The record is an 88-nucleotide RNA from Glycine max, which matches "MIR4378 microRNA precursor family" in Rfam. Rfam links the family to the GO terms RISC complex and miRNA-mediated post-transcriptional gene silencing.
RNA sequence: AUAGGACUGUCUUAGAAUGGUGUACAUUCUAAAACAGUCUCCAACACAAACUCGUCUUAGAAUGUCAUACAUUUUAAGACGGGCUUAU
Numbered sequence: 001a002u003a004g005g006a007c008u009g010u011c012u013u014a015g016a017a018u019g020g021u022g023u024a025c026a027u028u029c030u031a032a033a034a035c036a037g038u039c040u041c042c043a044a045c046a047c048a049a050a051c052u053c054g055u056c057u058u059a060g061a062a063u064g065u066c067a068u069a070c071a072u073u074u075u076a077a078g079a080c081g082g083g084c085u086u087a088u
Stems, first nucleotide, its partner, number of pairs: 001088005007082013025064008